RNA sequence: CUAGACCUUCGGGGUGAGGUGCAAUUCCUCGAUCGGUGGUAUAGCCCACGACUCCCCGCCCUAAAAAUUGGCGGAGACUGAACCUGUGCAAUUCAGGUGCCGACGGUUAAAGUCCGGAUGGUAGAAGGUUAGC
Numbered sequence: 001c002u003a004g005a006c007c008u009u010c011g012g013g014g015u016g017a018g019g020u021g022c023a024a025u026u027c028c029u030c031g032a033u034c035g036g037u038g039g040u041a042u043a044g045c046c047c048a049c050g051a052c053u054c055c056c057c058g059c060c061c062u063a064a065a066a067a068u069u070g071g072c073g074g075a076g077a078c079u080g081a082a083c084c085u086g087u088g089c090a091a092u093u094c095a096g097g098u099g100c101c102g103a104c105g106g107u108u109a110a111a112g113u114c115c116g117g118a119u120g121g122u123a124g125a126a127g128g129u130u131a132g133c
Stems, first nucleotide, its partner, number of pairs: 004130007017029003032113002034102002036049004044100002053077002082098005104116003